RNA: tRNA
RNA sequence: GGCUCCUUGGUCAAGCGGUCAAGACGUUACCCUCUCACGGUAGAAUCAGGGGUUCGAUUCCCCUAGGGGUCA
Number, nucleotide and partner (000 for none) at each position: 001g071002g070003c069004u068005c067006c066007u065008u000009g000010g025011u024012c023013a000014a000015g000016c000017g000018g000019u000020c000021a000022a000023g012024a011025c010026g000027u043028u042029a041030c040031c039032c000033u000034c000035u000036c000037a000038c000039g031040g030041u029042a028043g027044a000045a000046u000047c000048a064049g063050g062051g061052g060053u000054u000055c000056g000057a000058u000059u000060c052061c051062c050063c049064u048065a007066g006067g005068g004069g003070u002071c001072a000